[Rfam]
RNA: Makes More Granules Regulator RNA (mmgR)
RNA sequence: CGAUUGUGCCUUUCAGGCAUCCUCUCCUAAAAACUUUCACAAGGCCGGCUCGUCCGGCCUUUUUUUUCGUCCGCG
Numbered sequence: 001c002g003a004u005u006g007u008g009c010c011u012u013u014c015a016g017g018c019a020u021c022c023u024c025u026c027c028u029a030a031a032a033a034c035u036u037u038c039a040c041a042a043g044g045c046c047g048g049c050u051c052g053u054c055c056g057g058c059c060u061u062u063u064u065u066u067u068c069g070u071c072c073g074c075g
Base pairs, nucleotide, nucleotide: 008018009017010016011015042060043059044058045057046056047055048054